[Rfam]
RNA: ALIL pseudoknot
RNA sequence: UGCGUCUUUCUUCGGGGCGGAGCUCGACCGCCAACACAAGAUGUAGUUCGAUUCAUCAACCAGAACAAGAAUGAUGUGGUUGCUGGUCGCAGGCUCGGGGUCGAGCGCAUCUGCAAAGUAUUGCAGGUGGCCCCG
Numbered sequence: 001u002g003c004g005u006c007u008u009u010c011u012u013c014g015g016g017g018c019g020g021a022g023c024u025c026g027a028c029c030g031c032c033a034a035c036a037c038a039a040g041a042u043g044u045a046g047u048u049c050g051a052u053u054c055a056u057c058a059a060c061c062a063g064a065a066c067a068a069g070a071a072u073g074a075u076g077u078g079g080u081u082g083c084u085g086g087u088c089g090c091a092g093g094c095u096c097g098g099g100g101u102c103g104a105g106c107g108c109a110u111c112u113g114c115a116a117a118g119u120a121u122u123g124c125a126g127g128u129g130g131c132c133c134c135g
Base pairs, nucleotide, nucleotide: 016032017031018030019029020028096135097134098133099132100131108129110127111126112125113124114123115122116121